The family of this 86-nucleotide RNA sequence from Ricinus communis is "Small nucleolar RNA R160". Lineage of the source: Eukaryota > Streptophyta > eudicotyledons > Gunneridae > Ricinus. Rfam's curators write: snoR160 is a C/D box small nucleolar RNA, which acts as a methylation guide for 25S ribosomal RNA in plants. snoR160 has been alternatively named snoZ270 in rice. The family's RNA type in Rfam is C/D-box small nucleolar RNA.
RNA sequence: AGCCAAGAUGAUGAGUUGGUUUAGAUCUGAUUUAAGAUGUUGAAUCGCAUUUUAUCGUUAUGGUCUUCAAAGUUCUCUGAUUCGCU
Numbered sequence: 001a002g003c004c005a006a007g008a009u010g011a012u013g014a015g016u017u018g019g020u021u022u023a024g025a026u027c028u029g030a031u032u033u034a035a036g037a038u039g040u041u042g043a044a045u046c047g048c049a050u051u052u053u054a055u056c057g058u059u060a061u062g063g064u065c066u067u068c069a070a071a072g073u074u075c076u077c078u079g080a081u082u083c084g085c086u
Stems, first nucleotide, its partner, number of pairs: 001086003005082002